[Rfam]
RNA sequence: GCCCAUAAGAGGAAGAAUAGAGGGCCUUAGAGUAGUGGGAACGGGAACAUGGAGGAAAACCUAACUUCCUUGGUUUUUUGCUUCUAGUGUUGGAAGUGAUAAUUUUGUUUGGUGUUUUCCGAUGCCUCCCAUUCCUAUUGUUCUAAAGCACUCCUUCCUCUUCAUUUUUGGG
Numbered sequence: 001g002c003c004c005a006u007a008a009g010a011g012g013a014a015g016a017a018u019a020g021a022g023g024g025c026c027u028u029a030g031a032g033u034a035g036u037g038g039g040a041a042c043g044g045g046a047a048c049a050u051g052g053a054g055g056a057a058a059a060c061c062u063a064a065c066u067u068c069c070u071u072g073g074u075u076u077u078u079u080g081c082u083u084c085u086a087g088u089g090u091u092g093g094a095a096g097u098g099a100u101a102a103u104u105u106u107g108u109u110u111g112g113u114g115u116u117u118u119c120c121g122a123u124g125c126c127u128c129c130c131a132u133u134c135c136u137a138u139u140g141u142u143c144u145a146a147a148g149c150a151c152u153c154c155u156u157c158c159u160c161u162u163c164a165u166u167u168u169u170g171g172g
Stems, first nucleotide, its partner, number of pairs: 009163005015157003020153003025148001027146008036137006043130004048124003052120001055119006
Rfam assigns this 172-nucleotide sequence from Hordeum vulgare to the family "MIR2118 microRNA precursor family". The base pairs follow the family's consensus structure, which was predicted with RNAalifold. For this family Rfam cites "Characterization and expression profiles of miRNAs in rice seeds" (Xue et al., Nucleic Acids Res, 2009). Rfam links the family to the GO terms RISC complex and miRNA-mediated post-transcriptional gene silencing.